[Rfam]
RNA sequence: GUCACUUUUACGGUUAGCCAUUUGUCUCUUACAUUGCAUUUAUCAAACUGCUUUUUGAUACAGCAGCGCCUCGCUGCUGCUUUUUUAUUUG
Numbered sequence: 001g002u003c004a005c006u007u008u009u010a011c012g013g014u015u016a017g018c019c020a021u022u023u024g025u026c027u028c029u030u031a032c033a034u035u036g037c038a039u040u041u042a043u044c045a046a047a048c049u050g051c052u053u054u055u056u057g058a059u060a061c062a063g064c065a066g067c068g069c070c071u072c073g074c075u076g077c078u079g080c081u082u083u084u085u086u087a088u089u090u091g
Stems, first nucleotide, its partner, number of pairs: 012070003017025002034066004041060006
RNA: Invasion gene-associated RNA
Organism: Salmonella enterica